This 173-nucleotide RNA from Lachnospiraceae bacterium XPB1003 belongs to the Rfam family "Lysine riboswitch aptamer". Rfam's curators write: Riboswitches are metabolite binding domains within certain messenger RNAs that serve as precision sensors for their corresponding targets. Allosteric rearrangement of mRNA structure is mediated by ligand binding, and this results in modulation of gene expression. This family includes riboswitches that sense lysine in a number of genes involved in lysine metabolism, including lysC. A search with the family's covariance model found it, with a score of 121 bits. Taxonomically the source falls in Lachnospiraceae (Bacteria, Bacillati, Bacillota, Clostridia). The family's consensus secondary structure is taken from published work. Rfam 15.1 lists 3,224 matches to the family in 1,923 species.
[Rfam]
RNA sequence: AAUCAAGGUAGAGGUUGCGGGAACGAUUAGUACGUUGUCUGAUGCGGCGGACGCAGAUGAGGACAGCGGAAAGGUUUUUCCGCCGAAGGAAGACAUUCGCAGUGUCUUACCUGGGGGUACGGAGAAUAUCCGUAUCACUGUCAUCGGAAAUCCGAUGGGGCGCUAUCACAGAU
Numbered sequence: 001a002a003u004c005a006a007g008g009u010a011g012a013g014g015u016u017g018c019g020g021g022a023a024c025g026a027u028u029a030g031u032a033c034g035u036u037g038u039c040u041g042a043u044g045c046g047g048c049g050g051a052c053g054c055a056g057a058u059g060a061g062g063a064c065a066g067c068g069g070a071a072a073g074g075u076u077u078u079u080c081c082g083c084c085g086a087a088g089g090a091a092g093a094c095a096u097u098c099g100c101a102g103u104g105u106c107u108u109a110c111c112u113g114g115g116g117g118u119a120c121g122g123a124g125a126a127u128a129u130c131c132g133u134a135u136c137a138c139u140g141u142c143a144u145c146g147g148a149a150a151u152c153c154g155a156u157g158g159g160g161c162g163c164u165a166u167c168a169c170a171g172a173u
Stems, first nucleotide, its partner, number of pairs: 007167005017083007025075001033068008087112003090108007113139002116136008141158007